[Rfam]
RNA sequence: CAAGUCUGGUCCGUCCAAAGCCAAGCGAGCAGGGCGGGAGCGAGUCUUGCGGGCGUCGCGGCGAAGCGGGGUCCGAAGCGUAGACAGCGGUCGAACGGGGUGUGAGAUUGACUCCCGAAAUAGGCAUGUUGCGGAGGCAGAGCUGGCGCCCGCACCGGCGAAAGCAGCACAUUCGGUCUCGCCAUGCGAGAGGCCGGAUGCUCCGUCGGGGGCUAAGGACA
Dot-bracket structure: ...........(((((...((...[[..)).)))))...((..(((((((((((.((((......)))).)))))...)).)))).))....................((.((((((.............((((((((...((((..........))))....))....(((((((((((.....]]..)))))))))))))))))))))))).)......
The record is a 221-nucleotide RNA from Rhizobiales bacterium GAS113, which matches "Group II catalytic intron D1-D4-6" in Rfam. The source organism's lineage runs through Bacteria, Pseudomonadati, Pseudomonadota, Alphaproteobacteria and Hyphomicrobiales. The pairing is the family consensus, mapped onto this sequence.